[Rfam]
RNA: Small nucleolar RNA snoR2/U65
RNA sequence: GGUCCGAGCCACGUUGAUGGUAGUCAAUCCGGCAAUGACCAUCAAUGCUAUGAUUGGACCUAUAAAAAUUCUAUGUUUCGCAUCCUGAUAGGAAUCUGUUUACUGAUUUUAAACCAUUCAUUUACAGAGCCCUUUGUGCGAUUACAUUU
Numbered sequence: 001g002g003u004c005c006g007a008g009c010c011a012c013g014u015u016g017a018u019g020g021u022a023g024u025c026a027a028u029c030c031g032g033c034a035a036u037g038a039c040c041a042u043c044a045a046u047g048c049u050a051u052g053a054u055u056g057g058a059c060c061u062a063u064a065a066a067a068a069u070u071c072u073a074u075g076u077u078u079c080g081c082a083u084c085c086u087g088a089u090a091g092g093a094a095u096c097u098g099u100u101u102a103c104u105g106a107u108u109u110u111a112a113a114c115c116a117u118u119c120a121u122u123u124a125c126a127g128a129g130c131c132c133u134u135u136g137u138g139c140g141a142u143u144a145c146a147u148u149u
Stems, first nucleotide, its partner, number of pairs: 002059006008051001012047006019040003023033003078141005091131002096127003102121001
Dot-bracket structure: .(((((((...((((((.(((.(((.....)))....))).))))))...)..))))))..................(((((........((...(((...(..................)...)))..)).....)))))........